[Rfam]
RNA sequence: AAAUUUAUAGGUGAUGGAGUUCACCUUAAUCGCUUGAUGCUAAUGACUCCUACAGGUAA
Numbered sequence: 001a002a003a004u005u006u007a008u009a010g011g012u013g014a015u016g017g018a019g020u021u022c023a024c025c026u027u028a029a030u031c032g033c034u035u036g037a038u039g040c041u042a043a044u045g046a047c048u049c050c051u052a053c054a055g056g057u058a059a
Stems, first nucleotide, its partner, number of pairs: 010025004016050006032040002

A member of the RNA family "Fluoride riboswitch aptamer (crcB RNA motif)" from Clostridium cellulovorans, 59 nucleotides long. It scores 54 bits against the family's covariance model. The base pairs follow the family's consensus structure, which is taken from published work. Taxonomically the source falls in Clostridium cellulovorans (Bacteria, Bacillati, Eubacteriales, Clostridium).